[Rfam]
Record summary
The family of this 265-nucleotide sequence from bacterium HR16 is "Bacterial large signal recognition particle RNA". A search with the family's covariance model found it, with a score of 181 bits. It is annotated as a non-coding RNA gene. The family's consensus secondary structure is taken from published work. The signal recognition particle (SRP) is a universally conserved ribonucleoprotein involved in the co-translational targeting of proteins to membranes.

RNA sequence: CCGUGCUAGCCGGGGAGCUAGCGGUGCCCUGUACCCGCAAUCCGCUAUAGCGGGGGUGAACUCCUGCCCGCGGUGCCGUCUUGUGGGCAGUGCCUGCGUAAGUGGCGUUGAUGGUUGGGCGCUGCGCAACGGCUGACGUGCCAACCCCGCCAGGUCCGGAAGGAAGCAACGGUCAACACGAUCUCCGUGUGCCGCAGACCUACCCAGCCGGAGUCAACUGCGCAGGUCGACACCUGGAAGGCGCGCAUCAACGGCAGGUGCACGG
Numbered sequence: 001c002c003g004u005g006c007u008a009g010c011c012g013g014g015g016a017g018c019u020a021g022c023g024g025u026g027c028c029c030u031g032u033a034c035c036c037g038c039a040a041u042c043c044g045c046u047a048u049a050g051c052g053g054g055g056g057u058g059a060a061c062u063c064c065u066g067c068c069c070g071c072g073g074u075g076c077c078g079u080c081u082u083g084u085g086g087g088c089a090g091u092g093c094c095u096g097c098g099u100a101a102g103u104g105g106c107g108u109u110g111a112u113g114g115u116u117g118g119g120c121g122c123u124g125c126g127c128a129a130c131g132g133c134u135g136a137c138g139u140g141c142c143a144a145c146c147c148c149g150c151c152a153g154g155u156c157c158g159g160a161a162g163g164a165a166g167c168a169a170c171g172g173u174c175a176a177c178a179c180g181a182u183c184u185c186c187g188u189g190u191g192c193c194g195c196a197g198a199c200c201u202a203c204c205c206a207g208c209c210g211g212a213g214u215c216a217a218c219u220g221c222g223c224a225g226g227u228c229g230a231c232a233c234c235u236g237g238a239a240g241g242c243g244c245g246c247a248u249c250a251a252c253g254g255c256a257g258g259u260g261c262a263c264g265g
Base pairs, nucleotide, nucleotide: 001265002264003263004262005261006260009057010056011055012030013029014028015027017025018024019023034054035053036052037051038050063258064257065256066255067254068253072249073248074247075246076245078242079241080240081239082238084236085235086234087233091229094225095224096223097222098221099220102218103217104215105214106213112210113209114208115207116206117205118204119203122197123196124195125194126193127189128188130187131186132185137180138179139178140177147172148171149170155164156163157162